[Rfam]
The family of this 67-nucleotide RNA from Electrophorus electricus is "mir-34 microRNA precursor family". A reference for the family is Lim et al. (2003), "Vertebrate microRNA genes", Science. From the family's description: Human mir-34a was discovered computationally and later experimentally verified. The mature sequence is excised from the 5' arm of the hairpin. Gene Ontology terms of the family: RISC complex and miRNA-mediated post-transcriptional gene silencing.
RNA sequence: GGUCAUCAGGCAGUGUAGUUAGCUGAUUACAAUGGUCAGUAAUCACUAACCUCACUACCGGCUGAAC
Numbered sequence: 001g002g003u004c005a006u007c008a009g010g011c012a013g014u015g016u017a018g019u020u021a022g023c024u025g026a027u028u029a030c031a032a033u034g035g036u037c038a039g040u041a042a043u044c045a046c047u048a049a050c051c052u053c054a055c056u057a058c059c060g061g062c063u064g065a066a067c
Base pairs, nucleotide, nucleotide: 003065004064005063009059010058012056013055014054015053018050019049020048021047022046024045025044026043027042028041029040030039

The organism belongs to Electrophorus, within Eukaryota. The family's consensus secondary structure was predicted with RNAalifold.